A member of the RNA family "Acido-Lenti-1 RNA" from Chthoniobacter flavus, 44 nucleotides long.
The match comes from Rfam's covariance-model search (42 bits).
Rfam classes the family as a small RNA.
RNA sequence: CCCAGCGUUUAAACGCUGGGCUAUUCUCGGUCGUCCUUCGGACU
Number, nucleotide and partner (000 for none) at each position: 001c020002c019003c018004a017005g016006c015007g014008u013009u000010u000011a000012a000013a008014c007015g006016c005017u004018g003019g002020g001021c000022u000023a000024u000025u000026c000027u000028c000029g000030g000031u000032c000033g043034u042035c041036c040037u000038u000039c000040g036041g035042a034043c033044u000